[Rfam]
Nucleotides: 106
Base pairs, nucleotide, nucleotide: 003104004103005102006101007100008099013043014042015041016040017039021032022031023030026078027077028076029075044070045069046068047067049066050065052061053060054059074098079095080094081093082092083091084090
Number, partner (000 for none) and nucleotide at each position: 001000a002000g003104c004103u005102u006101a007100u008099c009000u010000a011000g012000a013043g014042a015041g016040g017039u018000g019000a020000a021032g022031g023030g024000a025000a026078c027077a028076g029075g030023c031022c032021c033000u034000a035000u036000g037000a038000u039017a040016c041015c042014u043013c044070a045069g046068c047067a048000a049066c050065c051000a052061c053060a054059c055000u056000u057000a058000a059054g060053u061052g062000a063000a064000a065050g066049g067047u068046g069045c070044u071000a072000a073000u074098u075029c076028c077027u078026g079095c080094a081093g082092g083091a084090c085000c086000u087000a088000a089000g090084g091083u092082u093081c094080u095079g096000g097000a098074a099008g100007a101006u102005a103004a104003g105000g106000g

A member of the RNA family "SAM riboswitch aptamer (S box leader)" from Cellulosilyticum lentocellum, 106 nucleotides long. The SAM riboswitch is found upstream of a number of genes which code for proteins involved in methionine or cysteine biosynthesis in Gram-positive bacteria. It scores 92 bits against the family's covariance model. Lineage of the source: Bacteria > Clostridia > Cellulosilyticaceae > Cellulosilyticum > Cellulosilyticum lentocellum.